[Rfam]
RNA sequence: GCGCCUGUCAUCGGGGAGUAGCCGCUCCGCGGUUGCGCGGAGGGUCGCGUCAACAUGCUUGGUCCAUUGAAGUUCCGUGGGCCAUGGCGCGACCGGGGCGGGAAGUGCCUGUUUCGCUGACCUC
Numbered sequence: 001g002c003g004c005c006u007g008u009c010a011u012c013g014g015g016g017a018g019u020a021g022c023c024g025c026u027c028c029g030c031g032g033u034u035g036c037g038c039g040g041a042g043g044g045u046c047g048c049g050u051c052a053a054c055a056u057g058c059u060u061g062g063u064c065c066a067u068u069g070a071a072g073u074u075c076c077g078u079g080g081g082c083c084a085u086g087g088c089g090c091g092a093c094c095g096g097g098g099c100g101g102g103a104a105g106u107g108c109c110u111g112u113u114u115c116g117c118u119g120a121c122c123u124c
Stems, first nucleotide, its partner, number of pairs: 026041003043094010060084008

Shown here is a 124-nucleotide sequence from Pelomicrobium methylotrophicum, a member of the family "Manganese Mn2+ riboswitch aptamer (yybP-ykoY)". From the family's description: This RNA was originally discovered in E. coli during a large scale screen and was named SraF. The family was later found to exist upstream of related families of protein genes in many bacteria, including the the yybP and ykoK genes in B. subtilis. The organism belongs to Pelomicrobium, within Bacteria.